Shown here is a 97-nucleotide RNA sequence, a member of the family "skipping-rope RNA". Rfam's curators put it in the seed alignment.
RNA sequence: GGGCUUUGAGGUGGUAAAAUUCGUUGCGACCACACGCCGAUGGUAUGACAGGGGGAAACCCCGAGAGAUGCGGGAGAUGCGACGCCCGCCAAAGCCC
Numbered sequence: 001g002g003g004c005u006u007u008g009a010g011g012u013g014g015u016a017a018a019a020u021u022c023g024u025u026g027c028g029a030c031c032a033c034a035c036g037c038c039g040a041u042g043g044u045a046u047g048a049c050a051g052g053g054g055g056a057a058a059c060c061c062c063g064a065g066a067g068a069u070g071c072g073g074g075a076g077a078u079g080c081g082a083c084g085c086c087c088g089c090c091a092a093a094g095c096c097c
Base pairs, nucleotide, nucleotide: 001097002096003095004094005093006092007091008090011033012032013031014030015029023083024082025081026080027079035065037054038053070089071088072087073086074085